[Rfam]
RNA: MIR168 microRNA precursor family
Organism: Rhododendron simsii
RNA sequence: GUUGCGGUGUUCUCUAAUUCGCUUGGUGCAGGUCGGGACUACUUCGCCGUCUGCUACUGACUUUAACUAAUUUUUUGUCUUGUGUUAAUUCGAGUUUUAGUGGCAGCACCUCAAAAAAAAAAAAAAAAAAUUCGAUUUUUGGUUAUUGGGUGGGGGAAUAGUUGGCGAAUUGGAUCCCGCCUUGCAUCAACUGAAUCGGAGACCGCCGCGAAA
Numbered sequence: 001g002u003u004g005c006g007g008u009g010u011u012c013u014c015u016a017a018u019u020c021g022c023u024u025g026g027u028g029c030a031g032g033u034c035g036g037g038a039c040u041a042c043u044u045c046g047c048c049g050u051c052u053g054c055u056a057c058u059g060a061c062u063u064u065a066a067c068u069a070a071u072u073u074u075u076u077g078u079c080u081u082g083u084g085u086u087a088a089u090u091c092g093a094g095u096u097u098u099a100g101u102g103g104c105a106g107c108a109c110c111u112c113a114a115a116a117a118a119a120a121a122a123a124a125a126a127a128a129a130a131u132u133c134g135a136u137u138u139u140u141g142g143u144u145a146u147u148g149g150g151u152g153g154g155g156g157a158a159u160a161g162u163u164g165g166c167g168a169a170u171u172g173g174a175u176c177c178c179g180c181c182u183u184g185c186a187u188c189a190a191c192u193g194a195a196u197c198g199g200a201g202a203c204c205g206c207c208g209c210g211a212a213a
Base pairs, nucleotide, nucleotide: 013200014199017196018195019194020193023190024189025188026187027186028185029184030183031182032181034179035178036177037176038175039173040172